[Rfam]
RNA sequence: AUGCCUUAAACUUAUGAGUAAGGAAAAUAACGAUUCAGGGUGACGCCCGAGUCCUCACUGCUUAUGUGAGACGAAUUUUUGAGCAGGUAUAGGUUGCAGUCUGGGGCGACCCGCCUACUUUGUGGGAUGCCUGGGUAACUCGAUCUGCCCG
Number, nucleotide and partner (000 for none) at each position: 001a000002u000003g000004c023005c022006u021007u020008a019009a000010a000011c000012u000013u000014a000015u000016g000017a000018g000019u008020a007021a006022g005023g004024a000025a000026a000027a000028u000029a000030a000031c000032g053033a052034u051035u050036c049037a000038g047039g046040g000041u000042g000043a000044c000045g000046c039047c038048c000049g036050a035051g034052u033053c032054c070055u069056c068057a067058c066059u000060g000061c000062u000063u000064a000065u000066g058067u057068g056069a055070g054071a000072c000073g000074a000075a000076u000077u000078u000079u000080u000081g000082a000083g000084c151085a000086g149087g148088u147089a000090u000091a146092g145093g144094u143095u142096g141097c000098a000099g000100u000101c135102u134103g000104g132105g131106g130107c129108g128109a000110c126111c125112c124113g123114c122115c000116u000117a000118c000119u000120u000121u000122g114123u113124g112125g111126g110127a000128u108129g107130c106131c105132u104133g000134g102135g101136u000137a000138a000139c000140u000141c096142g095143a094144u093145c092146u091147g088148c087149c086150c000151g084
The family of this 151-nucleotide RNA sequence from Mus spicilegus is "U12 minor spliceosomal RNA". The family's RNA type in Rfam is spliceosomal small nuclear RNA. Its family is annotated with mRNA branch site recognition, U12 snRNP and pre-mRNA branch point binding in the Gene Ontology.